[Rfam]
RNA sequence: UGCACUUUUAUACAGGUGCCUACAGAUGCAAAUCCGACGUGAUUUCAAUCACGGCCCGGUCAGGGCUUUGGGAUUGC
Number, nucleotide and partner (000 for none) at each position: 001u000002g019003c018004a017005c016006u015007u000008u000009u000010a000011u000012a000013c000014a000015g006016g005017u004018g003019c002020c000021u000022a000023c000024a000025g000026a000027u000028g077029c076030a075031a074032a000033u000034c072035c071036g000037a000038c000039g052040u051041g050042a049043u048044u000045u000046c000047a000048a043049u042050c041051a040052c039053g067054g066055c065056c064057c000058g000059g000060u000061c000062a000063g000064g056065g055066c054067u053068u000069u000070g000071g035072g034073a000074u031075u030076g029077c028